[Rfam]
RNA sequence: GGCUUUCUUCGCGGCGGAGCUCGACCGCCCAUCGCGCUGACCUGCUCAUACAUCGAUGAGCACAAGGAAGAGUUCGGAGUCGAGCCGAUCUGCCAGACCCUGCGAGAAGCAGGGCUCCAGAUCGCUCCG
Numbered sequence: 001g002g003c004u005u006u007c008u009u010c011g012c013g014g015c016g017g018a019g020c021u022c023g024a025c026c027g028c029c030c031a032u033c034g035c036g037c038u039g040a041c042c043u044g045c046u047c048a049u050a051c052a053u054c055g056a057u058g059a060g061c062a063c064a065a066g067g068a069a070g071a072g073u074u075c076g077g078a079g080u081c082g083a084g085c086c087g088a089u090c091u092g093c094c095a096g097a098c099c100c101u102g103c104g105a106g107a108a109g110c111a112g113g114g115c116u117c118c119a120g121a122u123c124g125c126u127c128c129g
Stems, first nucleotide, its partner, number of pairs: 013029005075129005086124002089121004
The family of this 129-nucleotide RNA from Brachybacterium sp. UMB0905 is "ALIL pseudoknot".
Pairs were carried over by alignment from the consensus structure, which is taken from published work.
The source organism's lineage runs through Bacteria, Bacillati, Actinomycetota, Dermabacteraceae and Brachybacterium.
It is annotated as a cis-regulatory element.